[Rfam]
RNA sequence: UAACCUGCGUCGGGAGACGCAGCUGAACCGGCAGAAGUCAGCAAAGGCCAUAGUACGGGCAGGGGGACGCCCCGACCGGGAAGGGC
Numbered sequence: 001u002a003a004c005c006u007g008c009g010u011c012g013g014g015a016g017a018c019g020c021a022g023c024u025g026a027a028c029c030g031g032c033a034g035a036a037g038u039c040a041g042c043a044a045a046g047g048c049c050a051u052a053g054u055a056c057g058g059g060c061a062g063g064g065g066g067a068c069g070c071c072c073c074g075a076c077c078g079g080g081a082a083g084g085g086c
Stems, first nucleotide, its partner, number of pairs: 001025002005022007038045001047086003056079001058077001062073002
Notes:
The record is an 86-nucleotide RNA sequence from Symbiobacterium thermophilum, which matches "Group II catalytic intron D1-D4-1" in Rfam. The sequence is in the family's curated seed alignment. The family has 237 seed sequences and 2,508 matches in Rfam 15.1.